A member of the RNA family "terC RNA" from Rhizobium sp. Leaf306, 61 nucleotides long.
The source organism's lineage runs through Bacteria, Pseudomonadota, Hyphomicrobiales, Rhizobiaceae and Rhizobium.
A search with the family's covariance model found it, with a score of 56 bits.
[Rfam]
RNA sequence: GCCCCUGUCCGGGCCCCUCUGGCGAGAGCUGCCGGUCCUCUCGCGAUGUCGGACGCCGCAU
Numbered sequence: 001g002c003c004c005c006u007g008u009c010c011g012g013g014c015c016c017c018u019c020u021g022g023c024g025a026g027a028g029c030u031g032c033c034g035g036u037c038c039u040c041u042c043g044c045g046a047u048g049u050c051g052g053a054c055g056c057c058g059c060a061u
Base pairs, nucleotide, nucleotide: 006055007054008053009052010051011050012049022044023043024042025041026040027039028038